[Rfam]
Nucleotides: 351
Base pairs, nucleotide, nucleotide: 040051041050042049043048055188056187057186058185059184065181067179068177069176070175071174080166081165082164084163085162086161090105091104092103093102094101106148107147108146109145110144111143112142189204190203191202192201195214196213198212199211200210317332318331319330320329323348324347325346326345327344328343
Number, partner (000 for none) and nucleotide at each position: 001000c002000c003000c004000a005000u006000u007000g008000a009000c010000a011000c012000a013000g014000g015000g016000c017000c018000g019000g020000g021000g022000c023000c024000g025000c026000a027000c028000u029000a030000c031000c032000u033000g034000u035000c036000a037000g038000a039000u040051g041050u042049u043048c044000c045000u046000c047000g048043g049042a050041a051040c052000u053000a054000u055188g056187g057186a058185c059184a060000u061000a062000a063000a064000c065181g066000g067179g068177g069176a070175u071174c072000a073000c074000a075000a076000u077000a078000g079000c080166u081165u082164u083000u084163c085162u086161g087000g088000a089000c090105u091104c092103g093102g094101c095000u096000g097000c098000g099000a100000a101094g102093c103092c104091g105090a106148c107147a108146c109145c110144u111143c112142c113000a114000c115000c116000a117000a118000a119000u120000c121000u122000u123000c124000c125000c126000u127000u128000c129000a130000u131000u132000g133000g134000g135000g136000g137000c138000g139000c140000a141000u142112g143111g144110g145109g146108g147107u148106g149000a150000a151000a152000u153000a154000g155000g156000a157000u158000c159000g160000a161086c162085a163084g164082g165081a166080a167000g168000u169000g170000a171000a172000a173000a174071g175070g176069u177068c178000u179067u180000a181065c182000u183000u184059u185058g186057u187056c188055c189204c190203g191202g192201u193000g194000a195214g196213c197000u198212a199211c200210c201192a202191c203190c204189g205000u206000u207000a208000u209000c210200g211199g212198u213196g214195c215000a216000a217000g218000c219000a220000u221000g222000a223000u224000a225000g226000u227000u228000g229000c230000c231000a232000a233000u234000g235000a236000c237000a238000a239000c240000c241000g242000u243000g244000c245000u246000c247000c248000g249000g250000u251000g252000g253000c254000g255000c256000u257000g258000g259000c260000u261000g262000c263000g264000u265000a266000a267000g268000c269000a270000g271000u272000u273000c274000g275000c276000a277000a278000a279000a280000c281000c282000a283000a284000a285000a286000c287000u288000u289000a290000a291000g292000u293000c294000c295000u296000g297000a298000g299000g300000c301000c302000u303000a304000g305000c306000a307000g308000c309000u310000u311000c312000a313000g314000g315000c316000g317332g318331g319330g320329c321000c322000c323348g324347c325346a326345g327344g328343a329320g330319c331318c332317u333000g334000g335000c336000a337000a338000c339000a340000g341000a342000a343328u344327c345326c346325u347324g348323c349000a350000c351000c

Shown here is a 351-nucleotide RNA sequence from Paenirhodobacter populi, a member of the family "Alphaproteobacteria transfer-messenger RNA". Rfam classes the family as a non-coding RNA gene. The family is grouped with related families in Rfam's "tRNA clan". NCBI's taxonomy places the organism under Bacteria, Pseudomonadati, Pseudomonadota, Alphaproteobacteria, Paenirhodobacter. About the family: Bacterial tmRNA, also known as 10Sa RNA or SsrA, is named for its dual tRNA and mRNA-like properties.